[Rfam]
RNA sequence: GGUGGAUCACACCAGUAUCUCGGACAGCGGUUCGAUUCCGCUCAGCUCCAUAACAUUGGGGCUGCAAUGGUUUCGACGGGAUUCAAGGAGUUUUACUGAAACCUGCUCGGUUAGAGCAAAACCAUAACUGCUAACAAAAUCGUUAGUUUCUCCCGUCAAACAGCCCCUGUUGCUGCUUGA
Numbered sequence: 001g002g003u004g005g006a007u008c009a010c011a012c013c014a015g016u017a018u019c020u021c022g023g024a025c026a027g028c029g030g031u032u033c034g035a036u037u038c039c040g041c042u043c044a045g046c047u048c049c050a051u052a053a054c055a056u057u058g059g060g061g062c063u064g065c066a067a068u069g070g071u072u073u074c075g076a077c078g079g080g081a082u083u084c085a086a087g088g089a090g091u092u093u094u095a096c097u098g099a100a101a102c103c104u105g106c107u108c109g110g111u112u113a114g115a116g117c118a119a120a121a122c123c124a125u126a127a128c129u130g131c132u133a134a135c136a137a138a139a140u141c142g143u144u145a146g147u148u149u150c151u152c153c154c155g156u157c158a159a160a161c162a163g164c165c166c167c168u169g170u171u172g173c174u175g176c177u178u179g180a
Base pairs, nucleotide, nucleotide: 001097002096003095004094005093017082018081020079021078022077026042027041028040029039030038043064044063045062046061047060048059049058

permuted transfer-messenger RNA: a 180-nucleotide sequence from Prochlorococcus sp. AG-363-C02. Rfam's curators write: Bacterial tmRNA, also known as 10Sa RNA or SsrA, is named for its dual tRNA and mRNA-like properties. The family's RNA type in Rfam is non-coding RNA gene. The family's consensus secondary structure is taken from published work.